[Rfam]
RNA sequence: AGAUCAUCUGUAACAGUGCUUACCAUGAUCC
Numbered sequence: 001a002g003a004u005c006a007u008c009u010g011u012a013a014c015a016g017u018g019c020u021u022a023c024c025a026u027g028a029u030c031c
Stems, first nucleotide, its partner, number of pairs: 002030006010023004014018001
RNA: Iron response element II
Organism: Muntiacus reevesi